Rfam assigns this 114-nucleotide sequence from Bagarius yarrelli to the family "Potassium channel RNA editing signal". By type it is a cis-regulatory element. Its family is annotated with adenosine to inosine editing in the Gene Ontology. The family's consensus secondary structure is taken from published work. The source organism's lineage runs through Eukaryota, Craniata, Neopterygii, Clupeocephala and Bagarius.
[Rfam]
RNA sequence: UUCAGGUAUGGUGACAUGGUCCCUAAGACAAUAGCAGGAAAGAUUUUUGGCUCGAUCUGUUCUCUAAGCGGAGUGCUGGUGAUUGCGCUGCCUGUCCCUGUUAUUGUUUCCAAC
Numbered sequence: 001u002u003c004a005g006g007u008a009u010g011g012u013g014a015c016a017u018g019g020u021c022c023c024u025a026a027g028a029c030a031a032u033a034g035c036a037g038g039a040a041a042g043a044u045u046u047u048u049g050g051c052u053c054g055a056u057c058u059g060u061u062c063u064c065u066a067a068g069c070g071g072a073g074u075g076c077u078g079g080u081g082a083u084u085g086c087g088c089u090g091c092c093u094g095u096c097c098c099u100g101u102u103a104u105u106g107u108u109u110c111c112a113a114c
Stems, first nucleotide, its partner, number of pairs: 002113001005110001008107004013102004018097002021094001037077002040074001049063002